[Rfam]
RNA sequence: AUACACCAUUAGGGGUGCCCCGUUCUCAGGGGCUGAAAUAAUACCCUUAUCACCUGAUCCGGAUCAUACCGGCGGAGGGAAAUGGAUUGAUUCGCUC
Numbered sequence: 001a002u003a004c005a006c007c008a009u010u011a012g013g014g015g016u017g018c019c020c021c022g023u024u025c026u027c028a029g030g031g032g033c034u035g036a037a038a039u040a041a042u043a044c045c046c047u048u049a050u051c052a053c054c055u056g057a058u059c060c061g062g063a064u065c066a067u068a069c070c071g072g073c074g075g076a077g078g079g080a081a082a083u084g085g086a087u088u089g090a091u092u093c094g095c096u097c
Stems, first nucleotide, its partner, number of pairs: 006085005011047004016041001017033005053078003059072004
Dot-bracket structure: .....(((((((((.((((((.......))))).......)..)))).....(((...((((......))))...)))..)))))............

The family of this 97-nucleotide RNA sequence from Rhodohalobacter sp. SW132 is "TPP riboswitch aptamer (THI element)". A search with the family's covariance model found it, with a score of 74 bits.